[Rfam]
RNA sequence: CGAAUCCCGCUGGGAAAGGAAUAGCUAACCACCCAUAGCUAGCCUUGGAGCGCAAGGGGUAACCACUGCGUUUAAGCGUAGGCAAGCAAGCUAGCAGGCCGAAAUCGAAAGGUGAAGGUAUUGAGCCCCGAAAUAGUGCAGCGAUGGGAGUGCCGAUGCUUUCAGUGCGGCAGAAGGCAAGAUUGCAUCUAGCGUGAUAGCGAGUUAGGUGCAAGCUCCCCGGGG
Dot-bracket structure: ..........((((...((..[.[[...)).))))..((..(((((((((((((..((....))..)))))))...)).))))..))......................................(((((...............(((((((((..((((........))))...)))....(((((((((((......]].]))))))))))))))))))))))
The family of this 225-nucleotide RNA sequence from a Selenomonadales bacterium is "Group II catalytic intron D1-D4-6". Group II introns are found in rRNA, tRNA and mRNA of organelles in fungi, plants and protists, and also in mRNA in bacteria. Pairs were carried over by alignment from the consensus structure. Gene Ontology term of the family: Group II intron splicing. A search with the family's covariance model found it, with a score of 136 bits.